Rfam assigns this 278-nucleotide sequence from Nannospalax galili to the family "Mason-Pfizer monkey virus packaging signal". Rfam classes the family as a cis-regulatory element. Rfam's curators write: This family represents a group of sequences that are related to the Mason-Pfizer monkey virus (MPMV) packaging signal. The packaging signal is located in the 5' UTR and is required for specific RNA encapsidation. It scores 152 bits against the family's covariance model.
RNA sequence: UGGCACCCAACGUGAGGCUUGGAUACUGGGGACAACGUGAGGGAGGCGACGGAAAAGAAGGGGGGCACUCGCUAAAUCUCAAGCAAUUUGGAGACACGUCAUGGGAGCCUGCCACAACUGAACCGAAGGUAAGUCGUGCCGUCCGAUCAUGGGGCAAGGAUUAAGCCAGCAUCAGAUUUAUGUUACGCAGUUGAGGGAGGCUCUCAAGGCAAGAGGAGUAAAGGUUAGGACUAUGGAUUUAUUUCAUUUCUUUGAUUUUGUAAAGGACAUUUGUCCCG
Numbered sequence: 001u002g003g004c005a006c007c008c009a010a011c012g013u014g015a016g017g018c019u020u021g022g023a024u025a026c027u028g029g030g031g032a033c034a035a036c037g038u039g040a041g042g043g044a045g046g047c048g049a050c051g052g053a054a055a056a057g058a059a060g061g062g063g064g065g066c067a068c069u070c071g072c073u074a075a076a077u078c079u080c081a082a083g084c085a086a087u088u089u090g091g092a093g094a095c096a097c098g099u100c101a102u103g104g105g106a107g108c109c110u111g112c113c114a115c116a117a118c119u120g121a122a123c124c125g126a127a128g129g130u131a132a133g134u135c136g137u138g139c140c141g142u143c144c145g146a147u148c149a150u151g152g153g154g155c156a157a158g159g160a161u162u163a164a165g166c167c168a169g170c171a172u173c174a175g176a177u178u179u180a181u182g183u184u185a186c187g188c189a190g191u192u193g194a195g196g197g198a199g200g201c202u203c204u205c206a207a208g209g210c211a212a213g214a215g216g217a218g219u220a221a222a223g224g225u226u227a228g229g230a231c232u233a234u235g236g237a238u239u240u241a242u243u244u245c246a247u248u249u250c251u252u253u254g255a256u257u258u259u260g261u262a263a264a265g266g267a268c269a270u271u272u273g274u275c276c277c278g
Stems, first nucleotide, its partner, number of pairs: 006031003012026003036048003083130002088127002095120002102114003137156003142153004163204001165201003213253006222240005265276004